Source information:
A member of the RNA family "Bacterial large subunit ribosomal RNA" from uncultured bacterium AD254-A9, 364 nucleotides of a longer RNA. Rfam's curators put it in the seed alignment.
[Rfam]
RNA sequence: CGAGUGAAUUGUGGAGAAGGAACUCGGCAAAAUGUCCCCGUAACUUCGGGAGAAGGGGAGCCCGUGUUAGGUGAAGCCGAUGCAUGGUGGAGCCGAAGCGGGCCGCAGAGAAUCGGCCCAGGCGACUGUUUAGCAAAAACACAGGUGUCUGCAAAGUCGCUGAGACGACGUAUAGGCACUGACGCCUGCCCGGUGCCGGAAGGUUAAAAGGAGGGGUUAGGAUUCGUCCGAAGCUCUGAAUUGAAGCCCCGGUAAACGGCGGCCGUAACUAUAACGGUCCUAAGGUAGCGAAAUUCCUUGUCGGGUAAGUUCCGACCUGCACGAAUGGCGUAACGAUCUGGGCGCUGUCUCCUCCGCAAGCUCG
Dot-bracket structure: ((((....((((((((.(((..............(((((....(....).....)))))((((((...........(((.(....).))).......))))))(...).......(((((((((..(((.........)))..(((((((((...(((.....)))...)..))))))))..((((.(((..(((((((..(((...((...(((((..((......))...)))))...))...))))))))..)))))((((((.......))))))(...).....(.........((((((.....))))))).........))))...)).)))))))....))).)))))))).))))
Numbered sequence: 001c002g003a004g005u006g007a008a009u010u011g012u013g014g015a016g017a018a019g020g021a022a023c024u025c026g027g028c029a030a031a032a033u034g035u036c037c038c039c040g041u042a043a044c045u046u047c048g049g050g051a052g053a054a055g056g057g058g059a060g061c062c063c064g065u066g067u068u069a070g071g072u073g074a075a076g077c078c079g080a081u082g083c084a085u086g087g088u089g090g091a092g093c094c095g096a097a098g099c100g101g102g103c104c105g106c107a108g109a110g111a112a113u114c115g116g117c118c119c120a121g122g123c124g125a126c127u128g129u130u131u132a133g134c135a136a137a138a139a140c141a142c143a144g145g146u147g148u149c150u151g152c153a154a155a156g157u158c159g160c161u162g163a164g165a166c167g168a169c170g171u172a173u174a175g176g177c178a179c180u181g182a183c184g185c186c187u188g189c190c191c192g193g194u195g196c197c198g199g200a201a202g203g204u205u206a207a208a209a210g211g212a213g214g215g216g217u218u219a220g221g222a223u224u225c226g227u228c229c230g231a232a233g234c235u236c237u238g239a240a241u242u243g244a245a246g247c248c249c250c251g252g253u254a255a256a257c258g259g260c261g262g263c264c265g266u267a268a269c270u271a272u273a274a275c276g277g278u279c280c281u282a283a284g285g286u287a288g289c290g291a292a293a294u295u296c297c298u299u300g301u302c303g304g305g306u307a308a309g310u311u312c313c314g315a316c317c318u319g320c321a322c323g324a325a326u327g328g329c330g331u332a333a334c335g336a337u338c339u340g341g342g343c344g345c346u347g348u349c350u351c352c353u354c355c356g357c358a359a360g361c362u363c364g
Stems, first nucleotide, its partner, number of pairs: 001364004009359008018350003035059005044049001060103006077090003081086001104108001116343007123335002127141003144180008152170001156166003183330004188260003193257002195253005202248003208242002213237005220229002261279006280284001290317001300316006